[Rfam]
RNA sequence: CUCGGCAUGUUCCUGCCGAUUCCUACGUGAGCGUGCUGCCAUUGCGCUGAUGAUGGGGGUGCGAAGCCUCACGGACAAUGUACCGAAAUGGAUCGAAAUGGUGACAGGACGAUUCUUCAGAGAAGCCUCCUCUGUUAAGGGC
Numbered sequence: 001c002u003c004g005g006c007a008u009g010u011u012c013c014u015g016c017c018g019a020u021u022c023c024u025a026c027g028u029g030a031g032c033g034u035g036c037u038g039c040c041a042u043u044g045c046g047c048u049g050a051u052g053a054u055g056g057g058g059g060u061g062c063g064a065a066g067c068c069u070c071a072c073g074g075a076c077a078a079u080g081u082a083c084c085g086a087a088a089u090g091g092a093u094c095g096a097a098a099u100g101g102u103g104a105c106a107g108g109a110c111g112a113u114u115c116u117u118c119a120g121a122g123a124a125g126c127c128u129c130c131u132c133u134g135u136u137a138a139g140g141g142c
Stems, first nucleotide, its partner, number of pairs: 002019006027072005032063006039056005090115004099106002118134005
The family of this 142-nucleotide RNA sequence from Candidatus Magnetomorum sp. HK-1 is "Group II catalytic intron D1-D4-7". About the family: Group II introns are found in rRNA, tRNA and mRNA of organelles in fungi, plants and protists, and also in mRNA in bacteria. The match comes from Rfam's covariance-model search (71 bits). The pairing is the family consensus, mapped onto this sequence. The source organism's lineage runs through Bacteria, Thermodesulfobacteriota, Desulfobacteria, Desulfobacterales and Candidatus Magnetomorum.